[Rfam]
RNA sequence: AUGGAGAUGAGGAUUCUUUCCCCGAAUGAUCGACAAUGAUUCCAAUCUACUGCACGAUCUCUUUGGAGAUAAGCCAGAUUACCUGAUCCAU
Numbered sequence: 001a002u003g004g005a006g007a008u009g010a011g012g013a014u015u016c017u018u019u020c021c022c023c024g025a026a027u028g029a030u031c032g033a034c035a036a037u038g039a040u041u042c043c044a045a046u047c048u049a050c051u052g053c054a055c056g057a058u059c060u061c062u063u064u065g066g067a068g069a070u071a072a073g074c075c076a077g078a079u080u081a082c083c084u085g086a087u088c089c090a091u
Stems, first nucleotide, its partner, number of pairs: 001091005

Shown here is a 91-nucleotide sequence from Taxus chinensis, a member of the family "Small nucleolar RNA Z103". The family has 12 seed sequences and 2,844 matches in Rfam 15.1. The family's consensus secondary structure was predicted with PFOLD. Taxonomically the source falls in Taxus (Eukaryota, Viridiplantae, Acrogymnospermae, Cupressales).